[Rfam]
RNA sequence: UGCCCGGUGAUGAUGCCCAUCCUUGCUCCCCAUGUCCCCCGGGGACCGUGGGCGACAUCAUGGCUGCCCCCGGCUGGGCUGGUUGGGCUGAUGCCUGGGGGCUGAGGGCA
Numbered sequence: 001u002g003c004c005c006g007g008u009g010a011u012g013a014u015g016c017c018c019a020u021c022c023u024u025g026c027u028c029c030c031c032a033u034g035u036c037c038c039c040c041g042g043g044g045a046c047c048g049u050g051g052g053c054g055a056c057a058u059c060a061u062g063g064c065u066g067c068c069c070c071c072g073g074c075u076g077g078g079c080u081g082g083u084u085g086g087g088c089u090g091a092u093g094c095c096u097g098g099g100g101g102c103u104g105a106g107g108g109c110a
Stems, first nucleotide, its partner, number of pairs: 001110005
RNA: Small nucleolar RNA SNORD23
Organism: Physeter macrocephalus